[Rfam]
RNA sequence: CAAUGAAGGAAAUAUGGUAAUGUGCACUAAAAUUAAAUUGGGUCUCUAGGCCUGCCCUUUCUAAUGCUAUUUGGCUUUGAUUAGUGGGUGUAGUUCUGCAACAAAACA
Number, nucleotide and partner (000 for none) at each position: 001c000002a000003a000004u000005g000006a000007a000008g000009g000010a000011a000012a000013u024014a023015u022016g000017g000018u000019a000020a000021u000022g015023u014024g013025c000026a000027c000028u000029a000030a000031a000032a000033u000034u000035a000036a000037a000038u000039u000040g091041g000042g089043u088044c087045u000046c000047u000048a000049g000050g081051c000052c079053u000054g075055c074056c073057c000058u000059u000060u000061c000062u000063a000064a000065u000066g000067c000068u000069a000070u000071u000072u000073g056074g055075c054076u000077u000078u000079g052080a000081u050082u000083a000084g000085u000086g000087g044088g043089u042090g000091u040092a000093g000094u000095u000096c000097u000098g000099c000100a000101a000102c000103a000104a000105a000106a000107c000108a000
A member of the RNA family "Small nucleolar RNA snoR100" from Rhododendron simsii, 108 nucleotides long. It is annotated as an H/ACA-box small nucleolar RNA. For this family Rfam cites "Experimental RNomics: identification of 140 candidates for small non-messenger RNAs in the plant Arabidopsis thaliana" (Marker et al., Curr Biol, 2002).